[Rfam]
RNA sequence: GCUGUAGCUGUGAUGAGAACUUGGCUCCCUCUACUGAGAGCUGUGAGGAGAUCUGCCAUCGUUACCCAAUAUUCUCUGAGAUACAGC
Numbered sequence: 001g002c003u004g005u006a007g008c009u010g011u012g013a014u015g016a017g018a019a020c021u022u023g024g025c026u027c028c029c030u031c032u033a034c035u036g037a038g039a040g041c042u043g044u045g046a047g048g049a050g051a052u053c054u055g056c057c058a059u060c061g062u063u064a065c066c067c068a069a070u071a072u073u074c075u076c077u078g079a080g081a082u083a084c085a086g087c
Base pairs, nucleotide, nucleotide: 001087002086003085004084005083006082
Shown here is an 87-nucleotide RNA sequence from Scleropages formosus, a member of the family "Small nucleolar RNA SNORD100". It is annotated as a C/D-box small nucleolar RNA. The family is grouped with related families in Rfam's "SNORD100 clan". A reference for the family is Huttenhofer et al. (2001), "RNomics: an experimental approach that identifies 201 candidates for novel, small, non-messenger RNAs in mouse", EMBO J. The match comes from Rfam's covariance-model search (72 bits). Lineage of the source: Eukaryota > Metazoa > Bilateria > Osteoglossomorpha > Scleropages.